[Rfam]
This 198-nucleotide part of an RNA from Metschnikowia sp. JCM 33374 belongs to the Rfam family "Archaeal large subunit ribosomal RNA". NCBI's taxonomy places the organism under Eukaryota, Opisthokonta, saccharomyceta, Serinales, Metschnikowia. A search with the family's covariance model found it, with a score of 1535 bits. The family's consensus secondary structure is taken from published work.
RNA sequence: UGUUGUUGCAAUAGUAAUUGAACUUAGUACGAGAGGAACCGUUCAUUCAGAUAAUUGGUAUUUGGCCCUGUCUGAGAAGGCAUUGGGCCGAAGCUACCAUCUGCUGGAUUAUGGCUGAACGCCUCUAAGUCAGAAUCCAUGCUAGAAGCAACGCCACUUGCUUGCAUUAGGGAGAUGGAUAUAGAUAGGCUUCGGCCA
Numbered sequence: 001u002g003u004u005g006u007u008g009c010a011a012u013a014g015u016a017a018u019u020g021a022a023c024u025u026a027g028u029a030c031g032a033g034a035g036g037a038a039c040c041g042u043u044c045a046u047u048c049a050g051a052u053a054a055u056u057g058g059u060a061u062u063u064g065g066c067c068c069u070g071u072c073u074g075a076g077a078a079g080g081c082a083u084u085g086g087g088c089c090g091a092a093g094c095u096a097c098c099a100u101c102u103g104c105u106g107g108a109u110u111a112u113g114g115c116u117g118a119a120c121g122c123c124u125c126u127a128a129g130u131c132a133g134a135a136u137c138c139a140u141g142c143u144a145g146a147a148g149c150a151a152c153g154c155c156a157c158u159u160g161c162u163u164g165c166a167u168u169a170g171g172g173a174g175a176u177g178g179a180u181a182u183a184g185a186u187a188g189g190c191u192u193c194g195g196c197c198a
Stems, first nucleotide, its partner, number of pairs: 001156002004153005017047001019045005048103005056096003064089005069082005105139003112132005